[Rfam]
RNA sequence: GAGAACUGAUAUUCCGAUGAGUGAAAUGAGGGAGUAACGCCCCGAAGCGCUCACACUGAUACUCCGACUGGCAUCAGCGUGCAACCGCCAAAGUGUCAGAAGCUCGGUAAAGUCGGCAGAGAGUAGCCGUAAAUAUGGCUAACUACCAUAUACGAAAGCUAUCCAGCGGUGGAUGGUGCUACCUAUAUGCCGGGUGUCGGUUAC
Numbered sequence: 001g002a003g004a005a006c007u008g009a010u011a012u013u014c015c016g017a018u019g020a021g022u023g024a025a026a027u028g029a030g031g032g033a034g035u036a037a038c039g040c041c042c043c044g045a046a047g048c049g050c051u052c053a054c055a056c057u058g059a060u061a062c063u064c065c066g067a068c069u070g071g072c073a074u075c076a077g078c079g080u081g082c083a084a085c086c087g088c089c090a091a092a093g094u095g096u097c098a099g100a101a102g103c104u105c106g107g108u109a110a111a112g113u114c115g116g117c118a119g120a121g122a123g124u125a126g127c128c129g130u131a132a133a134u135a136u137g138g139c140u141a142a143c144u145a146c147c148a149u150a151u152a153c154g155a156a157a158g159c160u161a162u163c164c165a166g167c168g169g170u171g172g173a174u175g176g177u178g179c180u181a182c183c184u185a186u187a188u189g190c191c192g193g194g195u196g197u198c199g200g201u202u203a204c
Base pairs, nucleotide, nucleotide: 018053019052020051021050022049023048031043032042034040054196055195056194057193064107065106066105067104068099069098070097071096072095073094074093077088078087079086114192115191116190117189118188123182124181125180126179127178128154129153130152135149136148137147138146158177159176160175161174162173163172164171165170
Dot-bracket structure: .................((((((.......((.(.....).))....))))))((((......(((((((((((..(((......)))....)))))))....))))......(((((....((((((((....((((.......))))..)))...((((((((....))))))))))))).....)))))))))........

This 204-nucleotide RNA from Anaerotruncus sp. AF02-27 belongs to the Rfam family "Group II catalytic intron D1-D4-5". Its family is annotated with Group II intron splicing in the Gene Ontology. The family has 139 seed sequences and 720 matches in Rfam 15.1. About the family: Group II introns are found in rRNA, tRNA and mRNA of organelles in fungi, plants and protists, and also in mRNA in bacteria. The match comes from Rfam's covariance-model search (170 bits). Taxonomically the source falls in Anaerotruncus (Bacteria, Bacillota, Clostridia, Eubacteriales).